RNA sequence: GAAAGGAGGACGCAUAUGUGCGAAGCACAUAUUUAGGAUGCGUCCGACGACCUGCCGCCGAACGAAUGUGAGGGGGCGAUACCGCGA
Numbered sequence: 001g002a003a004a005g006g007a008g009g010a011c012g013c014a015u016a017u018g019u020g021c022g023a024a025g026c027a028c029a030u031a032u033u034u035a036g037g038a039u040g041c042g043u044c045c046g047a048c049g050a051c052c053u054g055c056c057g058c059c060g061a062a063c064g065a066a067u068g069u070g071a072g073g074g075g076g077c078g079a080u081a082c083c084g085c086g087a
Base pairs, nucleotide, nucleotide: 008045009044010043011042012041013040015031016030017029018028019027020026054077055076056075058073059072062069063068

GA-cis RNA: an 87-nucleotide RNA sequence. It is one of the family's seed sequences. By type it is a small RNA.